This 51-nucleotide RNA sequence from Rhodobacter aestuarii belongs to the Rfam family "SAM/SAH riboswitch aptamer". The base pairs follow the family's consensus structure, which is taken from published work.
[Rfam]
RNA sequence: UAUCCGUUCCAACGGCUUCCUGGCGGGACGGAGCAUUUCUCUAAUGGAGCA
Dot-bracket structure: ...(((((((..(([[[.[[))..)))))))..............]]]]].
Gene Ontology terms of the family: regulation of gene expression and S-adenosylmethionine metabolic process. Taxonomically the source falls in Rhodobacter (Bacteria, Pseudomonadati, Pseudomonadota, Alphaproteobacteria).